[Rfam]
RNA sequence: AUAUAGUAUUAUUUUGCUAUCCUCAACCAAUAACACAAUGACAUGUGGAAAAAUUAUCUCACAUGUCAUUGCGUCAUUGGCCGGAGAUAGCAAAAAGUGUUAUCC
Numbered sequence: 001a002u003a004u005a006g007u008a009u010u011a012u013u014u015u016g017c018u019a020u021c022c023u024c025a026a027c028c029a030a031u032a033a034c035a036c037a038a039u040g041a042c043a044u045g046u047g048g049a050a051a052a053a054u055u056a057u058c059u060c061a062c063a064u065g066u067c068a069u070u071g072c073g074u075c076a077u078u079g080g081c082c083g084g085a086g087a088u089a090g091c092a093a094a095a096a097g098u099g100u101u102a103u104c105c
Base pairs, nucleotide, nucleotide: 003103004102005101012095013094014093015092016091017090018089019088020087023084024083027080028079029078030077031076033074034073036071037070038069039068040067041066042065043064044063045062046061047060048059050057
This 105-nucleotide sequence from Prunus avium belongs to the Rfam family "MIR6274 microRNA precursor family". Its family is annotated with RISC complex and miRNA-mediated post-transcriptional gene silencing in the Gene Ontology. The source organism's lineage runs through Eukaryota, Viridiplantae, Tracheophyta, Gunneridae and Prunus. Rfam 15.1 lists 342 matches to the family in 8 species. The family's consensus secondary structure was predicted with RNAalifold. A search with the family's covariance model found it, with a score of 81 bits.